[Rfam]
Overview:
A member of the RNA family "anti ponA RNA" from Pseudomonas graminis, 294 nucleotides long. The family's consensus secondary structure was predicted with RNAfold. It scores 192 bits against the family's covariance model.
RNA sequence: GAAGUUAUCGUCUUCGGCCGACAGCAGGGCGUGGAUGAAGUUGGGGGGAAUGUCGGCGAAACGGAUGGGGGAGCGGCGCAUUUCGCCAAACUCUGCAAUCAGUUUGCCGUCGCUGCUGAACACGCGCAGCGGGAUCUGCAGCUGAAUAUUGCGCAGGGCAUCGACCGAGGGCAGGUUCGGGGCCAGAUAGAGAAAGGCGCCGCUCAGGCCGAGCAGCAGCCCGCAGACGACCGCGACGAUGGACCACCAGACGAACUUCAGCAGGCGUAUCAAGGCUUUUGGAUUUCCAGAAAA
Numbered sequence: 001g002a003a004g005u006u007a008u009c010g011u012c013u014u015c016g017g018c019c020g021a022c023a024g025c026a027g028g029g030c031g032u033g034g035a036u037g038a039a040g041u042u043g044g045g046g047g048g049a050a051u052g053u054c055g056g057c058g059a060a061a062c063g064g065a066u067g068g069g070g071g072a073g074c075g076g077c078g079c080a081u082u083u084c085g086c087c088a089a090a091c092u093c094u095g096c097a098a099u100c101a102g103u104u105u106g107c108c109g110u111c112g113c114u115g116c117u118g119a120a121c122a123c124g125c126g127c128a129g130c131g132g133g134a135u136c137u138g139c140a141g142c143u144g145a146a147u148a149u150u151g152c153g154c155a156g157g158g159c160a161u162c163g164a165c166c167g168a169g170g171g172c173a174g175g176u177u178c179g180g181g182g183c184c185a186g187a188u189a190g191a192g193a194a195a196g197g198c199g200c201c202g203c204u205c206a207g208g209c210c211g212a213g214c215a216g217c218a219g220c221c222c223g224c225a226g227a228c229g230a231c232c233g234c235g236a237c238g239a240u241g242g243a244c245c246a247c248c249a250g251a252c253g254a255a256c257u258u259c260a261g262c263a264g265g266c267g268u269a270u271c272a273a274g275g276c277u278u279u280u281g282g283a284u285u286u287c288c289a290g291a292a293a294a
Stems, first nucleotide, its partner, number of pairs: 010172008019163003025045001028042003047084006054078002057075002062069001086095001102159003105155003109147002115142004120137001122135001123133001125131002176290002179287003184282001186279002197268005202262003206258002214238001217235001244253001

About the family: Transcribed antisense to the penicillin-binding protein 1A gene called ponA. It was identified by RNAseq and the expression was validated by 5' and 3' RACE experiments. AsponA expression was up or down regulated under different antibiotic stress. Rfam classes the family as an antisense RNA.